[Rfam]
RNA: TPP riboswitch aptamer (THI element)
Organism: Nakamurella sp. PAMC28650
RNA sequence: GGAAUCGACACGGGAGUCCGGUGCGCCGGGCUGAGAGAGGGACACGAAGUCCCUGACCGUCGAACCUGAUCCGGAUCAUGCCGGCGCAGGAACGUCGCUCUCGCUGCCG
Number, nucleotide and partner (000 for none) at each position: 001g000002g000003a000004a000005u000006c097007g096008a095009c094010a000011c059012g058013g057014g000015a054016g031017u030018c029019c028020g027021g000022u000023g000024c000025g000026c000027c020028g019029g018030g017031c016032u000033g000034a000035g000036a000037g000038a000039g053040g052041g051042a050043c000044a000045c000046g000047a000048a000049g000050u042051c041052c040053c039054u015055g000056a000057c013058c012059g011060u000061c000062g000063a000064a000065c090066c089067u088068g087069a000070u000071c084072c083073g082074g081075a000076u000077c000078a000079u000080g000081c074082c073083g072084g071085c000086g000087c068088a067089g066090g065091a000092a000093c000094g009095u008096c007097g006098c000099u000100c000101u000102c000103g000104c000105u000106g000107c000108c000109g000